[Rfam]
RNA sequence: CUCCCCGAAAUAGCUUUAGGGCUAGCGUUGUUUUAGAUCACCGGAGGUAAAGCACUGAAUGGGCUAGGGGCUGAUAAAGUUACUGAACCCUAUCAAACUCUGAAUGCCGGCUGAUCGAUGGACAGCAGUCAGACUACGUGAGAUAAGUCUCGUGGUCAAAAGGGAAACAGCCCAGACCCACAGCUAAGGUCCCUAAUACAUGCUAAGUGGAAAACGAUGUGGAGUUGCGAAAACAACCAGGAUGUUGGCUUAGAAGCAGCCACUCAUUAAAAGAGUGCGUAAUAGCUCACUGGUCGAGUGGCUCUGCGCGGAAAAUGUAACGGGGCUAAGCAUGUAACCGAAGCUUGGGAUGCACGCAAGUGCGUGGUAGGGGAGCGUCGAAUACGGGGCGAAGUCGCAGCGGGAGCAGCGGUGGACUGUAUUCGAGUGAGAAU
Numbered sequence: 001c002u003c004c005c006c007g008a009a010a011u012a013g014c015u016u017u018a019g020g021g022c023u024a025g026c027g028u029u030g031u032u033u034u035a036g037a038u039c040a041c042c043g044g045a046g047g048u049a050a051a052g053c054a055c056u057g058a059a060u061g062g063g064c065u066a067g068g069g070g071c072u073g074a075u076a077a078a079g080u081u082a083c084u085g086a087a088c089c090c091u092a093u094c095a096a097a098c099u100c101u102g103a104a105u106g107c108c109g110g111c112u113g114a115u116c117g118a119u120g121g122a123c124a125g126c127a128g129u130c131a132g133a134c135u136a137c138g139u140g141a142g143a144u145a146a147g148u149c150u151c152g153u154g155g156u157c158a159a160a161a162g163g164g165a166a167a168c169a170g171c172c173c174a175g176a177c178c179c180a181c182a183g184c185u186a187a188g189g190u191c192c193c194u195a196a197u198a199c200a201u202g203c204u205a206a207g208u209g210g211a212a213a214a215c216g217a218u219g220u221g222g223a224g225u226u227g228c229g230a231a232a233a234c235a236a237c238c239a240g241g242a243u244g245u246u247g248g249c250u251u252a253g254a255a256g257c258a259g260c261c262a263c264u265c266a267u268u269a270a271a272a273g274a275g276u277g278c279g280u281a282a283u284a285g286c287u288c289a290c291u292g293g294u295c296g297a298g299u300g301g302c303u304c305u306g307c308g309c310g311g312a313a314a315a316u317g318u319a320a321c322g323g324g325g326c327u328a329a330g331c332a333u334g335u336a337a338c339c340g341a342a343g344c345u346u347g348g349g350a351u352g353c354a355c356g357c358a359a360g361u362g363c364g365u366g367g368u369a370g371g372g373g374a375g376c377g378u379c380g381a382a383u384a385c386g387g388g389g390c391g392a393a394g395u396c397g398c399a400g401c402g403g404g405a406g407c408a409g410c411g412g413u414g415g416a417c418u419g420u421a422u423u424c425g426a427g428u429g430a431g432a433a434u
Stems, first nucleotide, its partner, number of pairs: 001375006011024005026128001027126007035119001036116005041110004050101001051099002056095003061090003067084002069081004132157007140149002162173003177349004182345003188339003197336007215310002219307010236294005242267003247261003268272001273288001277286002350365006376429001378426010394413005400407002